Rfam assigns this 84-nucleotide RNA sequence from Glaciihabitans tibetensis to the family "ZMP/ZTP riboswitch aptamer (pfl RNA motif)".

[Rfam]
RNA sequence: UGCAACGGUCGCAACUGGCGUUGAGAUGGGCAACCAUCGGGGAGCGACUGACACUCGAAUUGGCCGUACGCCUGGGCCGAUCGG
Dot-bracket structure: .....(((((((..(([[[[[....((((....))))..))..)))))))..........(((((..]]]]]..))))).....
The family's consensus secondary structure is taken from published work.
Gene Ontology terms of the family: regulation of purine nucleotide biosynthetic process and one-carbon metabolic process.